[Rfam]
RNA sequence: CCUUAAAUUUCUAAAGCAGCAAAUAAUGAUUCGCAUCUUUACCAGAGCAUGCAAAUCAUGAUGUGCUGCUAGAGUACUUUAAGG
Numbered sequence: 001c002c003u004u005a006a007a008u009u010u011c012u013a014a015a016g017c018a019g020c021a022a023a024u025a026a027u028g029a030u031u032c033g034c035a036u037c038u039u040u041a042c043c044a045g046a047g048c049a050u051g052c053a054a055a056u057c058a059u060g061a062u063g064u065g066c067u068g069c070u071a072g073a074g075u076a077c078u079u080u081a082a083g084g
Stems, first nucleotide, its partner, number of pairs: 001084006015070007023062002026059006033052004